Notes: The family of this 43-nucleotide RNA from Pongo abelii is "Small nucleolar RNA ZL63". Rfam classes the family as a C/D-box small nucleolar RNA.

RNA sequence: AGCUGAAGAGCUGAUGUUCCCCUAAGGCUGAAGCUCUUAAGCU
Numbered sequence: 001a002g003c004u005g006a007a008g009a010g011c012u013g014a015u016g017u018u019c020c021c022c023u024a025a026g027g028c029u030g031a032a033g034c035u036c037u038u039a040a041g042c043u
Stems, first nucleotide, its partner, number of pairs: 001043004006038007
The source organism's lineage runs through Eukaryota, Eumetazoa, Bilateria, Hominoidea and Pongo. The family has 3 seed sequences and 19 matches in Rfam 15.1. The family's consensus secondary structure was predicted with RNAfold.